[Rfam]
RNA sequence: GGGUUAGUAAAGGUUUCGACAGGGAUUCUGAAGCUGGAGAAGCUGUCCGCAGGAUGGUGCGUUAAUCCUCAAACUUAAAUAUAAACGCUGAAGAUAAUUUAGCAAUCGCUGCCUAAAUGCGGCGCGUCAGCCUGAGUGCACCUGCACAUUCAGUAACUGACGUCAACUUUGCAGGAAACGACAUGGUGAGUGCUCCGUAGCUAUGGUCGUAUCAGGGGCUACUUCUCAUAUUAGGGCGCUGACUUCCGGUUAUGAGAGGGAAAUGGCUUUGCCACAAUAGCCGGCUAUGACAGUAGAAGGACAGGGGACGGAUUUUUGGACGCGGGUUCGACUCCCGCCUAAUCCAUUC
Number, nucleotide and partner (000 for none) at each position: 001g345002g344003g343004u342005u341006a340007g339008u000009a000010a000011a000012g000013g000014u000015u000016u000017c000018g000019a000020c318021a317022g316023g315024g314025a313026u312027u311028c310029u000030g000031a000032a000033g000034c305035u304036g000037g302038a000039g000040a000041a000042g000043c293044u292045g291046u290047c289048c061049g060050c059051a058052g000053g000054a000055u071056g070057g069058u051059g050060c049061g048062u000063u000064a000065a000066u000067c000068c000069u057070c056071a055072a000073a000074c000075u000076u000077a000078a000079a000080u000081a000082u000083a000084a000085a000086c000087g000088c000089u000090g000091a000092a000093g000094a000095u000096a000097a000098u000099u000100u000101a000102g000103c000104a000105a000106u000107c124108g123109c122110u121111g120112c119113c000114u000115a000116a000117a000118u000119g112120c111121g110122g109123c108124g107125c162126g161127u160128c159129a158130g157131c000132c153133u152134g151135a150136g149137u148138g147139c000140a000141c175142c174143u173144g172145c171146a170147c138148a137149u136150u135151c134152a133153g132154u000155a000156a000157c130158u129159g128160a127161c126162g125163u000164c000165a000166a000167c000168u000169u000170u146171g145172c144173a143174g142175g141176a000177a000178a000179c000180g000181a000182c205183a204184u203185g202186g201187u200188g000189a198190g000191u000192g219193c218194u217195c216196c215197g000198u189199a000200g187201c186202u185203a184204u183205g182206g000207u000208c000209g000210u000211a000212u000213c000214a000215g196216g195217g194218g193219c192220u000221a000222c259223u258224u257225c256226u255227c254228a253229u252230a251231u000232u000233a000234g247235g246236g245237c000238g285239c284240u283241g282242a000243c280244u279245u236246c235247c234248g000249g000250u000251u230252a229253u228254g227255a226256g225257a224258g223259g222260g000261a000262a000263a000264u000265g000266g000267c000268u000269u000270u000271g000272c000273c000274a000275c000276a000277a000278u000279a244280g243281c000282c241283g240284g239285c238286u000287a000288u000289g047290a046291c045292a044293g043294u000295a000296g000297a000298a000299g000300g000301a000302c037303a000304g035305g034306g000307g000308a000309c000310g028311g027312a026313u025314u024315u023316u022317u021318g020319g000320a000321c000322g338323c337324g336325g335326g334327u000328u000329c000330g000331a000332c000333u000334c326335c325336c324337g323338c322339c007340u006341a005342a004343u003344c002345c001346a000347u000348u000349c000

A member of the RNA family "transfer-messenger RNA" from Butyrivibrio sp. ob235, 349 nucleotides long. Rfam describes the family as follows. Bacterial tmRNA, also known as 10Sa RNA or SsrA, is named for its dual tRNA and mRNA-like properties. The family's RNA type in Rfam is non-coding RNA gene. The base pairs follow the family's consensus structure, which is taken from published work. Clan: tRNA clan. Lineage of the source: Bacteria > Bacillati > Clostridia > Lachnospirales > Butyrivibrio.